DUF2800 RNA: a 183-nucleotide RNA sequence. The family's consensus secondary structure is taken from published work. It is one of the family's seed sequences. It is annotated as a cis-regulatory element.

RNA sequence: GUCCUGAGUAUGACAAAAAACUGCUCACUACAAUAACCGGCAUCAACUGAUCAAUGAUGGCUCAACCAGAUAUUGUAGGCAAUUUAAUAUCUACAGCUGCCUUGUGAGCAGGCCGCUGCAAUCCGAAACGGAGCAAUUCCGUCAGGACUGCGGUUCUAUCAUUGCGCCUUUUGCAGCUGUACC
Dot-bracket structure: ...........................(((((.((.(.(((((((.........)))))[[[[[.)).).)).)))))...............(((((((....]]]]].....(((((........(((((.....))))).......)))))..................)))))))....